The family of this 125-nucleotide RNA from Streptomyces mobaraensis is "Streptomyces RNA 3920". The match comes from Rfam's covariance-model search (91 bits). The base pairs follow the family's consensus structure. NCBI's taxonomy places the organism under Bacteria, Actinomycetota, Actinomycetes, Kitasatosporales, Streptomyces. Identified by deep sequencing of transcriptome at the end of exponential growth phase. Sequencing size consistent with northern blot size. Streptomyces specific.
RNA sequence: GAUAGGGCUGUGCCGCCAGGGUGAUUGGACACUGACGUAGAGUCAACUAGCCUUGGUCGCGCGGUUCUUCUUCUCGCGGACCGCGGCGGCUCAAGCCAUGAGGGGGGAGGCUUGAGCCGCCUUCG
Numbered sequence: 001g002a003u004a005g006g007g008c009u010g011u012g013c014c015g016c017c018a019g020g021g022u023g024a025u026u027g028g029a030c031a032c033u034g035a036c037g038u039a040g041a042g043u044c045a046a047c048u049a050g051c052c053u054u055g056g057u058c059g060c061g062c063g064g065u066u067c068u069u070c071u072u073c074u075c076g077c078g079g080a081c082c083g084c085g086g087c088g089g090c091u092c093a094a095g096c097c098a099u100g101a102g103g104g105g106g107g108a109g110g111c112u113u114g115a116g117c118c119g120c121c122u123u124c125g
Stems, first nucleotide, its partner, number of pairs: 001014001003012002015051002018048001021032003033045004058076002061073001063070002077083002085121013099106001